Overview
This 93-nucleotide RNA from Robertmurraya siralis belongs to the Rfam family "Selenocysteine transfer RNA". It scores 58 bits against the family's covariance model. Its family is annotated with triplet codon-amino acid adaptor activity in the Gene Ontology. The family has 109 seed sequences and 4,211 matches in Rfam 15.1.
RNA sequence: GGGGCUGAAUGGGGUACUGGUGUCCUCCGCGGUCUUCAAAACCGUCUGUGUCCUGCGUGCCAGGAUAGCUGGGUUCGAUUCCCAGGCAGUCCC
Number, nucleotide and partner (000 for none) at each position: 001g093002g092003g091004g090005c089006u088007g087008a000009a000010u000011g000012g027013g026014g025015u000016a023017c022018u000019g000020g000021u000022g017023u016024c000025c014026u013027c012028c000029g045030c044031g043032g042033u041034c000035u000036u000037c000038a000039a000040a000041a033042c032043c031044g030045u029046c000047u000048g000049u067050g066051u065052c064053c063054u000055g000056c000057g000058u000059g000060c000061c000062a000063g053064g052065a051066u050067a049068g000069c000070u084071g083072g082073g081074u000075u000076c000077g000078a000079u000080u000081c073082c072083c071084a070085g000086g000087c007088a006089g005090u004091c003092c002093c001